RNA: Streptomyces sRNA 4677
RNA sequence: UGCUCAGGCGGGCCCCGCGCUCUUCCAAAGAAACGUGGGAGAGAAAGAAACCCACCAAGCCCCACCUUCCCUCCCGUCCGCCGGAGCGGCGACGACAGCCGCUUCCGCGCAAACUCACUCGCCCGAGUGAACAUCACCAACUCAGGUGGAUAUGUGCCUGGUUGCCUGCCUUACGCUCAGCGCAGCAGCACCACCACAGACCACCAAAGACAACCGCUGACGGCGGACAUACGACGGCCCUCGCCGGGACUGGCAUCCCACUGCGAGGGCCUGACCACCAAGGAAGCAGACCUUCCCG
Numbered sequence: 001u002g003c004u005c006a007g008g009c010g011g012g013c014c015c016c017g018c019g020c021u022c023u024u025c026c027a028a029a030g031a032a033a034c035g036u037g038g039g040a041g042a043g044a045a046a047g048a049a050a051c052c053c054a055c056c057a058a059g060c061c062c063c064a065c066c067u068u069c070c071c072u073c074c075c076g077u078c079c080g081c082c083g084g085a086g087c088g089g090c091g092a093c094g095a096c097a098g099c100c101g102c103u104u105c106c107g108c109g110c111a112a113a114c115u116c117a118c119u120c121g122c123c124c125g126a127g128u129g130a131a132c133a134u135c136a137c138c139a140a141c142u143c144a145g146g147u148g149g150a151u152a153u154g155u156g157c158c159u160g161g162u163u164g165c166c167u168g169c170c171u172u173a174c175g176c177u178c179a180g181c182g183c184a185g186c187a188g189c190a191c192c193a194c195c196a197c198a199g200a201c202c203a204c205c206a207a208a209g210a211c212a213a214c215c216g217c218u219g220a221c222g223g224c225g226g227a228c229a230u231a232c233g234a235c236g237g238c239c240c241u242c243g244c245c246g247g248g249a250c251u252g253g254c255a256u257c258c259c260a261c262u263g264c265g266a267g268g269g270c271c272u273g274a275c276c277a278c279c280a281a282g283g284a285a286g287c288a289g290a291c292c293u294u295c296c297c298g
Stems, first nucleotide, its partner, number of pairs: 007279002010276001018107002115130006145205005236271005242265003246259004282296005